RNA sequence: AUGCCGGUAUCUUUUAAGAAUCGGACAAUUGAAUAAGAGUAAGUUUUAUUACGACUUGUAUCUUUUUAAAAGAACGAGAGCGGAGG
Numbered sequence: 001a002u003g004c005c006g007g008u009a010u011c012u013u014u015u016a017a018g019a020a021u022c023g024g025a026c027a028a029u030u031g032a033a034u035a036a037g038a039g040u041a042a043g044u045u046u047u048a049u050u051a052c053g054a055c056u057u058g059u060a061u062c063u064u065u066u067u068a069a070a071a072g073a074a075c076g077a078g079a080g081c082g083g084a085g086g
Stems, first nucleotide, its partner, number of pairs: 002027002004024005010019002052082002055078005061073003
RNA: pan motif
Organism: Dialister micraerophilus